[Rfam]
The record is a 302-nucleotide RNA from Lizanozyma spartinae, which matches "Nuclear RNase P" in Rfam. Gene Ontology terms of the family: ribonuclease P complex, tRNA processing and ribonuclease P activity. Rfam classes the family as a ribozyme. Ribonuclease P (RNase P) is a ubiquitous endoribonuclease, found in archaea, bacteria and eukarya as well as chloroplasts and mitochondria. Its best characterised activity is the generation of mature 5'-ends of tRNAs by cleaving the 5'-leader elements of precursor-tRNAs.
RNA sequence: GCAGCGAAUUCGCAUUUACCCGUCUACAAAAAGACAUUAUAAUACGGGUGGGAAAUUCGGUGAAACGCUCCGUCCGAACUGUUAAUGUUGGACUAGUCCUUCAUUAACGUUAGUUCUUGAGAACUUCAACAUGCGAAAGCAUACGUGCGAUGCCAUAAGAAAUACACAAUGGAAUUUGAUUCUGUUAUGGGAAUGUGCAUCGCUACGGACGGUUGGUGCUUCUGUUAUCAGAAGUACUAUUGAGUGCAAUAUGCGAACUUAAAUCCUUGUGGUUUAGGCACCCGAUACCGAUCAUCGACUGU
Numbered sequence: 001g002c003a004g005c006g007a008a009u010u011c012g013c014a015u016u017u018a019c020c021c022g023u024c025u026a027c028a029a030a031a032a033g034a035c036a037u038u039a040u041a042a043u044a045c046g047g048g049u050g051g052g053a054a055a056u057u058c059g060g061u062g063a064a065a066c067g068c069u070c071c072g073u074c075c076g077a078a079c080u081g082u083u084a085a086u087g088u089u090g091g092a093c094u095a096g097u098c099c100u101u102c103a104u105u106a107a108c109g110u111u112a113g114u115u116c117u118u119g120a121g122a123a124c125u126u127c128a129a130c131a132u133g134c135g136a137a138a139g140c141a142u143a144c145g146u147g148c149g150a151u152g153c154c155a156u157a158a159g160a161a162a163u164a165c166a167c168a169a170u171g172g173a174a175u176u177u178g179a180u181u182c183u184g185u186u187a188u189g190g191g192a193a194u195g196u197g198c199a200u201c202g203c204u205a206c207g208g209a210c211g212g213u214u215g216g217u218g219c220u221u222c223u224g225u226u227a228u229c230a231g232a233a234g235u236a237c238u239a240u241u242g243a244g245u246g247c248a249a250u251a252u253g254c255g256a257a258c259u260u261a262a263a264u265c266c267u268u269g270u271g272g273u274u275u276a277g278g279c280a281c282c283c284g285a286u287a288c289c290g291a292u293c294a295u296c297g298a299c300u301g302u
Base pairs, nucleotide, nucleotide: 001302002301003300004299005297006296009257010256011255012254013253014252015251018049019048020047021046022045058290059289060288061287062286072210073209074208075207112125113124114123115122116121131142132141133140134139147203148202149201150200151199152198153197168186169185170184171183172182173181174180175179258278259277260276261275262274263273264272